[Rfam]
RNA sequence: UGGCAACUAUGAUGAAAGAUUUGUUCUGCAUUGUAGUAAUGUUUUAUUACUGAAUGAGGACAACAGUCCCUCUAAACUGAUGUUGCCA
Dot-bracket structure: (((((((..........................................................................)))))))
RNA: Small nucleolar RNA SNORD127
Organism: Jaculus jaculus